[Rfam]
RNA sequence: ACGUCCGGGUGCCGUGAGGCCUCGGUCCGCUCGACAGAGCCUGAUGCACCUUCCCCGGCAUCAGGAUGCGGGCGGGCUGGGACCUGACGGGAUCCGGCAUCACAG
Numbered sequence: 001a002c003g004u005c006c007g008g009g010u011g012c013c014g015u016g017a018g019g020c021c022u023c024g025g026u027c028c029g030c031u032c033g034a035c036a037g038a039g040c041c042u043g044a045u046g047c048a049c050c051u052u053c054c055c056c057g058g059c060a061u062c063a064g065g066a067u068g069c070g071g072g073c074g075g076g077c078u079g080g081g082a083c084c085u086g087a088c089g090g091g092a093u094c095c096g097g098c099a100u101c102a103c104a105g
Base pairs, nucleotide, nucleotide: 010092012090013089014088015087018084019083021081022080023079024078025077026076027075028074029073030072031071032070033069038067040065041064042063043062044061045060046059047058
A member of the RNA family "mraW RNA" from Allosaccharopolyspora coralli, 105 nucleotides long. By type it is a cis-regulatory element. The match comes from Rfam's covariance-model search (58 bits). The base pairs follow the family's consensus structure, which is taken from published work.